[Rfam]
RNA sequence: UAGAAAUUUGUUUCAAUCAAACCUGUUAUGAUUAAAGCAAAUCUCGACUACCAACUAGGGUGCUUGCUGAGACUGACUCCGAGCACUCUAGUUUUUUU
Numbered sequence: 001u002a003g004a005a006a007u008u009u010g011u012u013u014c015a016a017u018c019a020a021a022c023c024u025g026u027u028a029u030g031a032u033u034a035a036a037g038c039a040a041a042u043c044u045c046g047a048c049u050a051c052c053a054a055c056u057a058g059g060g061u062g063c064u065u066g067c068u069g070a071g072a073c074u075g076a077c078u079c080c081g082a083g084c085a086c087u088c089u090a091g092u093u094u095u096u097u098u
Stems, first nucleotide, its partner, number of pairs: 003045002006042008015033005053093014069079003